[Rfam]
RNA sequence: ACAUAUACUGAGUGGCCAGAUUAUUAUGAACUCUGAAUGCAUAAUAAUCCAGCCACUCAGUGUAUAU
Numbered sequence: 001a002c003a004u005a006u007a008c009u010g011a012g013u014g015g016c017c018a019g020a021u022u023a024u025u026a027u028g029a030a031c032u033c034u035g036a037a038u039g040c041a042u043a044a045u046a047a048u049c050c051a052g053c054c055a056c057u058c059a060g061u062g063u064a065u066a067u
Base pairs, nucleotide, nucleotide: 004064005063006062007061008060009059010058011057012056013055014054015053016052019049020048021047022046023045024044025043026042027041028040

A member of the RNA family "mir-9256 microRNA precursor family" from Cnephaeus nilssonii, 67 nucleotides long. The family's consensus secondary structure was predicted with RNAalifold. The family has 8 seed sequences and 31,772 matches in Rfam 15.1.